[Rfam]
RNA sequence: GAGCGAUGACAGAUUCCGUGCUCCUGUGAAUGGUUGGGUCCAUCACUACCGUCUGAUUUCAACAGACGAUAAGAUGCACAUCUGAGCUC
Numbered sequence: 001g002a003g004c005g006a007u008g009a010c011a012g013a014u015u016c017c018g019u020g021c022u023c024c025u026g027u028g029a030a031u032g033g034u035u036g037g038g039u040c041c042a043u044c045a046c047u048a049c050c051g052u053c054u055g056a057u058u059u060c061a062a063c064a065g066a067c068g069a070u071a072a073g074a075u076g077c078a079c080a081u082c083u084g085a086g087c088u089c
Stems, first nucleotide, its partner, number of pairs: 001089004
RNA: small nucleolar RNA snoR114